A member of the RNA family "MIR8565 microRNA precursor family" from Amborella trichopoda, 154 nucleotides long. Pairs were carried over by alignment from the consensus structure, which was predicted with RNAalifold. Rfam's curators put it in the seed alignment.
[Rfam]
RNA sequence: UCCACACUCAUGUAUGCUGGACUUCAAAGGAUCAACCAUUAAAUUUGGCAUAGAUCUUUAGAAAAGUUAUCACAUGACUGUGAAAUUUGACUUUCUUAGAGAUCUGUGUCAAAUUUAAUGGUAAUCUUUUGGGGUCCUACACACAUGGGUGAGG
Numbered sequence: 001u002c003c004a005c006a007c008u009c010a011u012g013u014a015u016g017c018u019g020g021a022c023u024u025c026a027a028a029g030g031a032u033c034a035a036c037c038a039u040u041a042a043a044u045u046u047g048g049c050a051u052a053g054a055u056c057u058u059u060a061g062a063a064a065a066g067u068u069a070u071c072a073c074a075u076g077a078c079u080g081u082g083a084a085a086u087u088u089g090a091c092u093u094u095c096u097u098a099g100a101g102a103u104c105u106g107u108g109u110c111a112a113a114u115u116u117a118a119u120g121g122u123a124a125u126c127u128u129u130u131g132g133g134g135u136c137c138u139a140c141a142c143a144c145a146u147g148g149g150u151g152a153g154g
Base pairs, nucleotide, nucleotide: 002153005151006150007149008148009147010146011145012144013143015141016140019137020136021135022134023133024132025131026130027129028128030126031125032124034122036121037120038119039118040117041116042115043114044113045112046111047110048109049108050107051106052105053104054103055102056101057100058099059098060097061096063094064093065092066091067090068089069088070083071082072081073080074079